[Rfam]
RNA: Mammalian CPEB3 ribozyme
Organism: Alligator mississippiensis
RNA sequence: GUUGCAAGUUUGGGGCCACAGCAGAAGAGCUCACGUGUGGCCGUGUCAGAUUCCACCAAAUCUGCAAAUUCUGCU
Numbered sequence: 001g002u003u004g005c006a007a008g009u010u011u012g013g014g015g016c017c018a019c020a021g022c023a024g025a026a027g028a029g030c031u032c033a034c035g036u037g038u039g040g041c042c043g044u045g046u047c048a049g050a051u052u053c054c055a056c057c058a059a060a061u062c063u064g065c066a067a068a069u070u071c072u073g074c075u
Stems, first nucleotide, its partner, number of pairs: 014042004020075007027038001047064006